Description:
The family of this 355-nucleotide sequence from Phaeovulum veldkampii is "Alphaproteobacteria transfer-messenger RNA".

RNA sequence: CCGCUUGCAGCCGGGCGCGGGCGCCCCUAUAUUGAUUGUGUCCGGGGUGACCCGGACUAUGGGUAUAAACGCGCUCGUAAUAAGCGGAUCGGACCCGGGGGCGGUACCCGGCGGCUCCACCAUCAAUCCCGUCGUUGGGGAUCAUGGGGCCGAAACAGGAUCGACGAACGUCCAAAGGGGUUUGCUUUACCUCGGUGAGCUACCACCGUUAUCGGUGCAAAAGUACAGUUGCCAACGACAACCGUGCUCCGGUCGCUCUGGCUGCGUAAGCAGCUCGGGUAACCGAAACCUAAAGCCCUGUCGCUUAGCCGCGGCAGGCGGGGCUCGCAGGCGCCUGGCAACAGAAGCCUGCACC
Numbered sequence: 001c002c003g004c005u006u007g008c009a010g011c012c013g014g015g016c017g018c019g020g021g022c023g024c025c026c027c028u029a030u031a032u033u034g035a036u037u038g039u040g041u042c043c044g045g046g047g048u049g050a051c052c053c054g055g056a057c058u059a060u061g062g063g064u065a066u067a068a069a070c071g072c073g074c075u076c077g078u079a080a081u082a083a084g085c086g087g088a089u090c091g092g093a094c095c096c097g098g099g100g101g102c103g104g105u106a107c108c109c110g111g112c113g114g115c116u117c118c119a120c121c122a123u124c125a126a127u128c129c130c131g132u133c134g135u136u137g138g139g140g141a142u143c144a145u146g147g148g149g150c151c152g153a154a155a156c157a158g159g160a161u162c163g164a165c166g167a168a169c170g171u172c173c174a175a176a177g178g179g180g181u182u183u184g185c186u187u188u189a190c191c192u193c194g195g196u197g198a199g200c201u202a203c204c205a206c207c208g209u210u211a212u213c214g215g216u217g218c219a220a221a222a223g224u225a226c227a228g229u230u231g232c233c234a235a236c237g238a239c240a241a242c243c244g245u246g247c248u249c250c251g252g253u254c255g256c257u258c259u260g261g262c263u264g265c266g267u268a269a270g271c272a273g274c275u276c277g278g279g280u281a282a283c284c285g286a287a288a289c290c291u292a293a294a295g296c297c298c299u300g301u302c303g304c305u306u307a308g309c310c311g312c313g314g315c316a317g318g319c320g321g322g323g324c325u326c327g328c329a330g331g332c333g334c335c336u337g338g339c340a341a342c343a344g345a346a347g348c349c350u351g352c353a354c355c
Stems, first nucleotide, its partner, number of pairs: 040057007061192005071185002073181004085170002089167003095111005112152007193208004199218002202216003321336004327352006
Notes: Rfam links the family to the GO term RNA catabolic process. By type it is a non-coding RNA gene. It scores 296 bits against the family's covariance model. The organism belongs to Phaeovulum veldkampii, within Bacteria.